[Rfam]
Shown here is a 31-nucleotide sequence from Dokdonia donghaensis, a member of the family "S16-Flavobacteria ribosomal protein leader". A reference for the family is Eckert and Weinberg (2020), "Discovery of 20 novel ribosomal leader candidates in bacteria and archaea", BMC Microbiol. It scores 36 bits against the family's covariance model. Rfam classes the family as a cis-regulatory leader.
RNA sequence: UAAAAACAGGGGUCGGGUACCCCACAAAUUA
Numbered sequence: 001u002a003a004a005a006a007c008a009g010g011g012g013u014c015g016g017g018u019a020c021c022c023c024a025c026a027a028a029u030u031a
Stems, first nucleotide, its partner, number of pairs: 001031003009023005